[Rfam]
RNA sequence: GUGGUCUAGGGAAAGGCUCCUGUGUUUUCAAACCUGCCCCAUGGUGGGUGCAGCGCUGGACCGGCAGCCGGCUCCUGACCUGGAGUAAAUUCCCAGAAGUUUCUCCUGGGUUUUGAAAUUGCACUAACAGGUGUGAACAUUCUAGUAGCAGUUUGAUUGCAUCUGAUAGUGCACACAGAC
Numbered sequence: 001g002u003g004g005u006c007u008a009g010g011g012a013a014a015g016g017c018u019c020c021u022g023u024g025u026u027u028u029c030a031a032a033c034c035u036g037c038c039c040c041a042u043g044g045u046g047g048g049u050g051c052a053g054c055g056c057u058g059g060a061c062c063g064g065c066a067g068c069c070g071g072c073u074c075c076u077g078a079c080c081u082g083g084a085g086u087a088a089a090u091u092c093c094c095a096g097a098a099g100u101u102u103c104u105c106c107u108g109g110g111u112u113u114u115g116a117a118a119u120u121g122c123a124c125u126a127a128c129a130g131g132u133g134u135g136a137a138c139a140u141u142c143u144a145g146u147a148g149c150a151g152u153u154u155g156a157u158u159g160c161a162u163c164u165g166a167u168a169g170u171g172c173a174c175a176c177a178g179a180c
Stems, first nucleotide, its partner, number of pairs: 003080004009074002015069004019064002022062001024061002026055001028053001032049003092110003096105002120173007128165002134159003141155001144153003
Small Cajal body specific RNA 16: a 180-nucleotide RNA from Galemys pyrenaicus. The family's consensus secondary structure was predicted with RNAfold. Taxonomically the source falls in Galemys (Eukaryota, Opisthokonta, Eumetazoa, Talpidae). The match comes from Rfam's covariance-model search (118 bits). On this family, see Darzacq et al., EMBO J 2002: "Cajal body-specific small nuclear RNAs: a novel class of 2'-O-methylation and pseudouridylation guide RNAs".